Rfam assigns this 135-nucleotide RNA from Probosciger aterrimus to the family "Small nucleolar RNA SNORA14". It is annotated as an H/ACA-box small nucleolar RNA. Rfam's curators write: ACA14 is a member of the H/ACA class of snoRNA that guide the sites of modification of uridines to pseudouridines.
RNA sequence: CUGCAUUCUGAGCCCUCCUGGCAGCUCUGUUAGCAGCUUCCAGGGUCAGAGUGAAUGCCAGAGAAAACUGUUGAUUAAUCCAAGAUAUUGAGCUCUCCUCCUAGGGUUCUUCAUUACUUCACAUCUUCAACAUUC
Numbered sequence: 001c002u003g004c005a006u007u008c009u010g011a012g013c014c015c016u017c018c019u020g021g022c023a024g025c026u027c028u029g030u031u032a033g034c035a036g037c038u039u040c041c042a043g044g045g046u047c048a049g050a051g052u053g054a055a056u057g058c059c060a061g062a063g064a065a066a067a068c069u070g071u072u073g074a075u076u077a078a079u080c081c082a083a084g085a086u087a088u089u090g091a092g093c094u095c096u097c098c099u100c101c102u103a104g105g106g107u108u109c110u111u112c113a114u115u116a117c118u119u120c121a122c123a124u125c126u127u128c129a130a131c132a133u134u135c
Stems, first nucleotide, its partner, number of pairs: 003058004008051002016045006023038003063135002069129002073125002084115003090109001092107002096103001